[Rfam]
RNA sequence: UAGUCGGUGAAAGUCCGACCGGGAGAAAAGACUCCACUCCCGUAGCCUGAGAGGCAUCGUGGAGCGAAAAGCGAGACGGUGGAGCCCUCUGACAUCACGUUCGUAAGGAGCGUGGGCAAAACUCCAGGUUGUAACGUAC
Numbered sequence: 001u002a003g004u005c006g007g008u009g010a011a012a013g014u015c016c017g018a019c020c021g022g023g024a025g026a027a028a029a030g031a032c033u034c035c036a037c038u039c040c041c042g043u044a045g046c047c048u049g050a051g052a053g054g055c056a057u058c059g060u061g062g063a064g065c066g067a068a069a070a071g072c073g074a075g076a077c078g079g080u081g082g083a084g085c086c087c088u089c090u091g092a093c094a095u096c097a098c099g100u101u102c103g104u105a106a107g108g109a110g111c112g113u114g115g116g117c118a119a120a121a122c123u124c125c126a127g128g129u130u131g132u133a134a135c136g137u138a139c
Stems, first nucleotide, its partner, number of pairs: 020042005050090005055081006064072002097113006116132003

A member of the RNA family "Group II catalytic intron D1-D4-4" from Aneurinibacillus migulanus, 139 nucleotides long. About the family: Group II introns are found in rRNA, tRNA and mRNA of organelles in fungi, plants and protists, and also in mRNA in bacteria. For this family Rfam cites "The ins and outs of group II introns" (Bonen and Vogel, Trends Genet, 2001). It scores 106 bits against the family's covariance model.